RNA sequence: UGGUUUCCUGCUUCAACAGUACUUGGAUGGAAUCCA
Numbered sequence: 001u002g003g004u005u006u007c008c009u010g011c012u013u014c015a016a017c018a019g020u021a022c023u024u025g026g027a028u029g030g031a032a033u034c035c036a
Stems, first nucleotide, its partner, number of pairs: 001036003005032004010028001012027005
This 36-nucleotide RNA from Molossus molossus belongs to the Rfam family "Iron response element I". The family's RNA type in Rfam is cis-regulatory element. A search with the family's covariance model found it, with a score of 35 bits. Pairs were carried over by alignment from the consensus structure, which is taken from published work. For this family Rfam cites "Identification of the iron-responsive element for the translational regulation of human ferritin mRNA" (Hentze et al., Science, 1987).